[Rfam]
RNA sequence: CAUUUAUAAGGUGAUGGGGCCCACCAAACCGCCGCAAGGCUGAUGGCUCCUUUUGAAAA
Numbered sequence: 001c002a003u004u005u006a007u008a009a010g011g012u013g014a015u016g017g018g019g020c021c022c023a024c025c026a027a028a029c030c031g032c033c034g035c036a037a038g039g040c041u042g043a044u045g046g047c048u049c050c051u052u053u054u055g056a057a058a059a
Stems, first nucleotide, its partner, number of pairs: 010025004016050006031040003

A member of the RNA family "Fluoride riboswitch aptamer (crcB RNA motif)", 59 nucleotides long. The sequence is in the family's curated seed alignment. The base pairs follow the family's consensus structure, which is taken from published work.